[Rfam]
This 144-nucleotide RNA sequence from Prosthecodimorpha hirschii belongs to the Rfam family "Alphaproteobacterial sRNA BjrC1505".
RNA sequence: GGCGUCCCGAUUUACGCUUCGUUAAGGUUUACGAGGCAUGAUCGUCUGGUCCGGAAGUCCCGGACCCGAGUGGCUCCUAUCCACUCCUCUUUUUGACGCCUCCCUGUACUUUCUUCGAGCCGUGCCCGUCACGGCUCGUUUUUU
Numbered sequence: 001g002g003c004g005u006c007c008c009g010a011u012u013u014a015c016g017c018u019u020c021g022u023u024a025a026g027g028u029u030u031a032c033g034a035g036g037c038a039u040g041a042u043c044g045u046c047u048g049g050u051c052c053g054g055a056a057g058u059c060c061c062g063g064a065c066c067c068g069a070g071u072g073g074c075u076c077c078u079a080u081c082c083a084c085u086c087c088u089c090u091u092u093u094u095g096a097c098g099c100c101u102c103c104c105u106g107u108a109c110u111u112u113c114u115u116c117g118a119g120c121c122g123u124g125c126c127c128g129u130c131a132c133g134g135c136u137c138g139u140u141u142u143u144u
Stems, first nucleotide, its partner, number of pairs: 001046004006016001018040001023038001028033001050064004068086006096107003116138009
The family's RNA type in Rfam is small RNA. A search with the family's covariance model found it, with a score of 66 bits.